[Rfam]
RNA sequence: GACAGAGUAAGUAAAAUGCGUUAAGUGUUAAGGAAUGGGAAGUUGUCCUUAAACGAAAGAAUUUUUUCUGCGAUAUUUUACUGCAUCCGCUGUU
Number, nucleotide and partner (000 for none) at each position: 001g094002a093003c092004a091005g090006a000007g000008u000009a000010a082011g081012u080013a079014a078015a077016a076017u075018g074019c072020g071021u070022u000023a000024a000025g054026u053027g000028u052029u051030a050031a049032g048033g047034a046035a000036u000037g000038g088039g087040a086041a000042g084043u000044u000045g000046u034047c033048c032049u031050u030051a029052a028053a026054c025055g000056a000057a000058a069059g068060a067061a066062u000063u000064u000065u000066u061067u060068c059069u058070g021071c020072g019073a000074u018075a017076u016077u015078u014079u013080a012081c011082u010083g000084c042085a000086u040087c039088c038089g000090c005091u004092g003093u002094u001
Notes
Rfam assigns this 94-nucleotide RNA sequence from Fusibacter sp. 3D3 to the family "THF (Tetrahydrofolate) riboswitch aptamer". NCBI's taxonomy places the organism under Bacteria, Bacillati, Bacillota, Clostridia, Fusibacter. Tetrahydrofolate (THF) riboswitch was first reported for Ames et al. as an RNA motif in 5' untranslated (5'-UTR)regions of folate transport and biosynthesis genes in Firmicutes genomes. A reference for the family is Ames et al. (2010), "A eubacterial riboswitch class that senses the coenzyme tetrahydrofolate", Chem Biol. Its family is annotated with tetrahydrofolate metabolic process in the Gene Ontology.